[Rfam]
RNA sequence: CGCAGCCCCUCACGUGCGCUAUCUGACUGAACUCCCCCAGGGCCGGAAGGCAGCAAGGGUAGGUCGGCUCUGGCGGGUGCGUGGGGGCGCUUGCGUU
Numbered sequence: 001c002g003c004a005g006c007c008c009c010u011c012a013c014g015u016g017c018g019c020u021a022u023c024u025g026a027c028u029g030a031a032c033u034c035c036c037c038c039a040g041g042g043c044c045g046g047a048a049g050g051c052a053g054c055a056a057g058g059g060u061a062g063g064u065c066g067g068c069u070c071u072g073g074c075g076g077g078u079g080c081g082u083g084g085g086g087g088c089g090c091u092u093g094c095g096u097u
Base pairs, nucleotide, nucleotide: 004091005090006089008087009085010084011083012082013081014080015077017075018074019073020072021071023067024066025065026064027063028062034059035058036057042051043050044049